Shown here is a 127-nucleotide RNA sequence from Molossus molossus, a member of the family "U11 spliceosomal RNA". Its Rfam clan is "U1 clan". The family's consensus secondary structure is taken from published work. The family has 72 seed sequences and 2,595 matches in Rfam 15.1. It scores 91 bits against the family's covariance model. NCBI's taxonomy places the organism under Eukaryota, Craniata, Euteleostomi, Mammalia, Molossus. Rfam classes the family as a spliceosomal small nuclear RNA.
[Rfam]
RNA sequence: AAAAAGAGCUUCUGUCGUGAGUGGCACAUGUAGAGUAGCUUGAUUGCUCUACGUGCGGAAUCAGCAUCAAGAGAUUUUGGAAGCAUAACAUUUUGGGCAGUGGGUGAUUGUUGGUCCUGGCACCUGU
Number, nucleotide and partner (000 for none) at each position: 001a000002a000003a000004a000005a000006g000007a000008g084009c083010u082011u081012c080013u026014g025015u024016c023017g022018u000019g000020a000021g000022u017023g016024g015025c014026a013027c055028a054029u053030g052031u051032a050033g049034a048035g047036u046037a045038g044039c000040u000041u000042g000043a000044u038045u037046g036047c035048u034049c033050u032051a031052c030053g029054u028055g027056c079057g078058g077059a076060a075061u074062c073063a000064g000065c000066a000067u000068c000069a000070a000071g000072a000073g062074a061075u060076u059077u058078u057079g056080g012081a011082a010083g009084c008085a000086u000087a000088a000089c000090a000091u000092u000093u000094u000095g125096g124097g123098c000099a000100g121101u120102g000103g118104g117105u000106g116107a115108u114109u113110g000111u000112u000113g109114g108115u107116c106117c104118u103119g000120g101121c100122a000123c097124c096125u095126g000127u000